[Rfam]
RNA sequence: ACACAACUGGGGAAUCCGUGAGGGGAUGGGUAUAAUCCUUGAGCCUAAUUUCUUACCCCGGGAGUGGUUAUCGUAGCUUGGUGAGCAUGACCGCAAGACGGUAAGCCUGAAAACUACAAACCGCACCCACUUGAACCUCUGGUUCAAGGUCGAAGUCUCCCACGAUUUUUGGGGUGUGUC
Numbered sequence: 001a002c003a004c005a006a007c008u009g010g011g012g013a014a015u016c017c018g019u020g021a022g023g024g025g026a027u028g029g030g031u032a033u034a035a036u037c038c039u040u041g042a043g044c045c046u047a048a049u050u051u052c053u054u055a056c057c058c059c060g061g062g063a064g065u066g067g068u069u070a071u072c073g074u075a076g077c078u079u080g081g082u083g084a085g086c087a088u089g090a091c092c093g094c095a096a097g098a099c100g101g102u103a104a105g106c107c108u109g110a111a112a113a114c115u116a117c118a119a120a121c122c123g124c125a126c127c128c129a130c131u132u133g134a135a136c137c138u139c140u141g142g143u144u145c146a147a148g149g150u151c152g153a154a155g156u157c158u159c160c161c162a163c164g165a166u167u168u169u170u171g172g173g174g175u176g177u178g179u180c
Base pairs, nucleotide, nucleotide: 002178003177004176005175007173008172010170011169012168013167014166015165017164018163019162037149038148039147040146041145042144043143044142045141060128061127062126064124065123066122067121068120069119071118073117074116075115076114078113079112085106086105090102091101092100093099

This 180-nucleotide RNA from Candidatus Thiothrix singaporensis belongs to the Rfam family "6S / SsrS RNA". The family's RNA type in Rfam is non-coding RNA gene. Pairs were carried over by alignment from the consensus structure, which is taken from published work.